[Rfam]
RNA sequence: CAAUUUUGUCAUCGGGUAAGUAUCCUAUCGGGCUUUUUAGGCUGAUGACAUAAACUAUGAGGAGUACUGUUAAUGGCCCGUAUCGCUGGCAUUAACAUCCCUGAG
Dot-bracket structure: ...((.(((((((..........[[...[[[[....{{{....))))))).)).......................]]]].......]]............}}}.
Numbered sequence: 001c002a003a004u005u006u007u008g009u010c011a012u013c014g015g016g017u018a019a020g021u022a023u024c025c026u027a028u029c030g031g032g033c034u035u036u037u038u039a040g041g042c043u044g045a046u047g048a049c050a051u052a053a054a055c056u057a058u059g060a061g062g063a064g065u066a067c068u069g070u071u072a073a074u075g076g077c078c079c080g081u082a083u084c085g086c087u088g089g090c091a092u093u094a095a096c097a098u099c100c101c102u103g104a105g
Stems, first nucleotide, its partner, number of pairs: 004053002007050007024089002029080004037104003

This 105-nucleotide RNA from Paraglaciecola sp. T6c belongs to the Rfam family "Alpha operon ribosome binding site". Rfam's curators put it in the seed alignment. Rfam describes the family as follows. The bacterial alpha operon ribosome binding site is surrounded by this complex pseudoknotted structure. Translation of the mRNA produces 4 ribosomal protein products, one of which (S4) acts as a translational repressor by binding to the nested pseudoknot region. Gene Ontology term of the family: ribosome binding.